[Rfam]
RNA sequence: GUCUCUGAUGAUGAUUUACAUUAAAACUUUCGUUCUUCUGAGAAAUUCUCCUUGCGGAAAUUUAUUGGAGACCUGAACUGAAGAGAC
Number, nucleotide and partner (000 for none) at each position: 001g000002u000003c085004u084005c083006u082007g000008a000009u000010g000011a000012u000013g000014a000015u000016u000017u000018a000019c000020a000021u000022u000023a000024a000025a000026a000027c000028u000029u000030u000031c000032g000033u000034u000035c000036u000037u000038c000039u000040g000041a000042g000043a000044a000045a000046u000047u000048c000049u000050c000051c000052u000053u000054g000055c000056g000057g000058a000059a000060a000061u000062u000063u000064a000065u000066u000067g000068g000069a000070g000071a000072c000073c000074u000075g000076a000077a000078c000079u000080g000081a000082a006083g005084a004085g003086a000087c000
Rfam assigns this 87-nucleotide RNA sequence from Tripterygium wilfordii to the family "Small nucleolar RNA Z159/U59". Rfam 15.1 lists 1,401 matches to the family in 272 species. Taxonomically the source falls in Tripterygium (Eukaryota, Viridiplantae, Streptophytina, Pentapetalae). A reference for the family is Chen et al. (2003), "The high diversity of snoRNAs in plants: identification and comparative study of 120 snoRNA genes from Oryza sativa", Nucleic Acids Res. Pairs were carried over by alignment from the consensus structure, which was predicted with PFOLD. By type it is a C/D-box small nucleolar RNA. It scores 70 bits against the family's covariance model.